RNA: Tryptophan operon leader
Organism: Vibrio splendidus
RNA sequence: CUUAAUUGGUGGCGCACUUGGACAAGUUCUUGGUGGGCUAACGUGUACUUCUAGUUAAACAGUUUGUUUAUAAAAAAGUUAUCACUAAGCCCGCUUUAAUAGCGGGCUUUUUAAU
Dot-bracket structure: ........((.(..((((.(((.....))).))))...).)).............................................(((((((.......))))))).......